RNA: Purine riboswitch aptamer
Organism: Anoxybacillus sp. B7M1
Nucleotides: 102
Base pairs, nucleotide, nucleotide: 018088019087020086021085022084023083024082025081029049031047032046033045034044035043058078059077060076061075062074063073064072
Number, partner (000 for none) and nucleotide at each position: 001000g002000g003000u004000a005000a006000c007000u008000u009000g010000a011000u012000a013000a014000c015000a016000u017000u018088c019087c020086c021085u022084c023083a024082u025081a026000u027000a028000a029049u030000c031047u032046u033045g034044g035043g036000a037000a038000u039000a040000u041000g042000g043035c044034c045033c046032a047031a048000a049029a050000g051000u052000c053000u054000c055000u056000a057000c058078c059077c060076a061075a062074u063073a064072a065000c066000c067000g068000u069000a070000a071000a072064u073063u074062a075061u076060u077059g078058g079000a080000c081025u082024a083023u084022g085021a086020g087019g088018g089000a090000a091000a092000g093000g094000a095000u096000c097000g098000a099000a100000u101000g102000g